[Rfam]
RNA sequence: GCUGAGGAGUGAUGACAAUAAAAGGCCGAAUUGCAGUGCCUCCAGCAAACAGUUUGCUCUCCUUGGAGCACAAUGACAAAAAUCAUCCGAAGCGUAUCACUAGUCUGACCUCAGU
Dot-bracket structure: (((((((......(((........((......))((((...((..(......(.(((((......))))).).(.(......).)...)..).)...)))).)))...)))))))
Numbered sequence: 001g002c003u004g005a006g007g008a009g010u011g012a013u014g015a016c017a018a019u020a021a022a023a024g025g026c027c028g029a030a031u032u033g034c035a036g037u038g039c040c041u042c043c044a045g046c047a048a049a050c051a052g053u054u055u056g057c058u059c060u061c062c063u064u065g066g067a068g069c070a071c072a073a074u075g076a077c078a079a080a081a082a083u084c085a086u087c088c089g090a091a092g093c094g095u096a097u098c099a100c101u102a103g104u105c106u107g108a109c110c111u112c113a114g115u
Stems, first nucleotide, its partner, number of pairs: 001115007014105003025034002035101004042094001043092001046089001053072001055070005074085001076083001